RNA sequence: UGCUGUUAAUGAUGAUUGUUUAAAAAAACAAUGGGAAUCUCUCUGAAAAAGGAUGAGGGAAACCUUUUUGACUGAAACAGUG
Numbered sequence: 001u002g003c004u005g006u007u008a009a010u011g012a013u014g015a016u017u018g019u020u021u022a023a024a025a026a027a028a029c030a031a032u033g034g035g036a037a038u039c040u041c042u043c044u045g046a047a048a049a050a051g052g053a054u055g056a057g058g059g060a061a062a063c064c065u066u067u068u069u070g071a072c073u074g075a076a077a078c079a080g081u082g
Stems, first nucleotide, its partner, number of pairs: 001082007